[Rfam]
RNA sequence: GGAUGUUCUGAAGACCUGCUUACCAGGCCACACACAGAGGACCUCAGUUCCCCAUGGGCCCCACGCUUGCCCAGGGGGAAGUCUCCGGAAUGCCGGCAGAGAGCACCAGGCGCUGACGUGCCCCUGCCUGCCGCCGCCCCAUGCCACCCUCCGCUGAGACAGCCGCAGGCCGAGCAGGUGAGUGCAGUACAGGGUGGGUCCUCAUCACGGCCACAGACACGCAGGCAGUGUGGCAGGCGUGCCAACAGAACGGGGCUCACUCUCAUGCUUU
Dot-bracket structure: ..(.(.(.(((...(((((...((.(((........(.(((.(...).))).)...............)))..))....[[.[[[[........((.........)).(((((....)))))..(.(...((.(.(.....(((......(.((.......(((...)))...)).)......)))...).))).).)......................)))))..(((((.....))))).........]]]]]].....))).).).)
The record is a 271-nucleotide RNA from Panurus biarmicus, which matches "RNase MRP" in Rfam.
The organism belongs to Panurus, within Eukaryota.
Rfam classes the family as a ribozyme.
It scores 64 bits against the family's covariance model.